[Rfam]
RNA sequence: AUGAAGAUAGUGGGAGAGAGAUGAUAAAAUCCGCCGAAGAAGUUACUCUUUCAGGCAAAAGAACCAUUAUUGGACG
Numbered sequence: 001a002u003g004a005a006g007a008u009a010g011u012g013g014g015a016g017a018g019a020g021a022u023g024a025u026a027a028a029a030u031c032c033g034c035c036g037a038a039g040a041a042g043u044u045a046c047u048c049u050u051u052c053a054g055g056c057a058a059a060a061g062a063a064c065c066a067u068u069a070u071u072g073g074a075c076g
Stems, first nucleotide, its partner, number of pairs: 006071008020031003033056003036052002040050003

The family of this 76-nucleotide RNA from Garciella nitratireducens is "Glycine riboswitch aptamer". Its family is annotated with glycine biosynthetic process in the Gene Ontology. The organism belongs to Garciella nitratireducens, within Bacteria. Rfam's curators write: This family represents the bacterial glycine riboswitch. A search with the family's covariance model found it, with a score of 52 bits.